[Rfam]
RNA sequence: UAUUAUAAAAAUGUAUCUCUUCAUAUAUCCUCGAAAAUAUGGUUCGAGAGUCUCUACCAAAUCGCCGUAAAUGAUUUGACUAUGAAGGCGGAGCUUUCUAUG
Dot-bracket structure: .................((((((((....((((((.......)))))).........(((((((.......)))))))..))))))))..............
RNA: Purine riboswitch aptamer
Organism: Bacillus sp. Y1